RNA sequence: UAUGAACUUUAGGGGUGCUUUACCUCCUGUUCCGGAAAGGACACAGGAAAUAAGGCUGAGAAAUACCCUCUGAACCUGAUCCGGGUAAUACCGGCGAAGGGAAAAGGCGAAUAUUGUAU
Numbered sequence: 001u002a003u004g005a006a007c008u009u010u011a012g013g014g015g016u017g018c019u020u021u022a023c024c025u026c027c028u029g030u031u032c033c034g035g036a037a038a039g040g041a042c043a044c045a046g047g048a049a050a051u052a053a054g055g056c057u058g059a060g061a062a063a064u065a066c067c068c069u070c071u072g073a074a075c076c077u078g079a080u081c082c083g084g085g086u087a088a089u090a091c092c093g094g095c096g097a098a099g100g101g102a103a104a105a106g107g108c109g110a111a112u113a114u115u116g117u118a119u
Stems, first nucleotide, its partner, number of pairs: 007106004011069004016063001017056005075100003081094004

Shown here is a 119-nucleotide sequence from Sinomicrobium oceani, a member of the family "TPP riboswitch aptamer (THI element)". The match comes from Rfam's covariance-model search (74 bits).